The family of this 129-nucleotide RNA sequence from Prolemur simus is "Small nucleolar RNA SNORA30/SNORA37 family". A search with the family's covariance model found it, with a score of 126 bits. Gene Ontology terms of the family: RNA processing and nucleolus. The family has 11 seed sequences and 407 matches in Rfam 15.1. By type it is an H/ACA-box small nucleolar RNA. Rfam describes the family as follows. The members of this family belong to the H/ACA class of snoRNAs that guide the sites of modification of uridines to pseudouridines. The literature on the family includes a 2001 paper in EMBO J by Huttenhofer et al., "RNomics: an experimental approach that identifies 201 candidates for novel, small, non-messenger RNAs in mouse".

[Rfam]
RNA sequence: CUAGCAUUUUCACAGGUCCUUCCCCUGGCAGUGGGGCUAGGAUUUGGUAGCUGGUGCUUAGAGAAAACCCUUGAUUGCAUCCUUGCCUUGGGAUUGUACCAGUGGCAACUGUCACUGAGUGGGACAGAG
Numbered sequence: 001c002u003a004g005c006a007u008u009u010u011c012a013c014a015g016g017u018c019c020u021u022c023c024c025c026u027g028g029c030a031g032u033g034g035g036g037c038u039a040g041g042a043u044u045u046g047g048u049a050g051c052u053g054g055u056g057c058u059u060a061g062a063g064a065a066a067a068c069c070c071u072u073g074a075u076u077g078c079a080u081c082c083u084u085g086c087c088u089u090g091g092g093a094u095u096g097u098a099c100c101a102g103u104g105g106c107a108a109c110u111g112u113c114a115c116u117g118a119g120u121g122g123g124a125c126a127g128a129g
Base pairs, nucleotide, nucleotide: 003058004057005056006055007054008053013046014045015044017042018041019040020039022036023035024034025033068123069122070121071119072118074116076114077113079112080111083108084107085106086105087104088102089101090100091099